RNA sequence: UUAAAUAGAGAUAAAAACACAGUUUCGGUUGGUAGUCCGAACCUAUCUAUUGUUUAUAGGUAGCAGUAUCCUUCCCUCCUGGGGUCGUCCACUCUCUUUAGUAAAGAU
Numbered sequence: 001u002u003a004a005a006u007a008g009a010g011a012u013a014a015a016a017a018c019a020c021a022g023u024u025u026c027g028g029u030u031g032g033u034a035g036u037c038c039g040a041a042c043c044u045a046u047c048u049a050u051u052g053u054u055u056a057u058a059g060g061u062a063g064c065a066g067u068a069u070c071c072u073u074c075c076c077u078c079c080u081g082g083g084g085u086c087g088u089c090c091a092c093u094c095u096c097u098u099u100a101g102u103a104a105a106g107a108u
Base pairs, nucleotide, nucleotide: 005099007097008096009095010094011093022042023041025040026039027038028037043063044062045061046060047059048058049057050056074084075083076082

Shown here is a 108-nucleotide RNA from Clostridium tagluense, a member of the family "azaaromatic riboswitch aptamer (yjdF RNA)". The match comes from Rfam's covariance-model search (79 bits).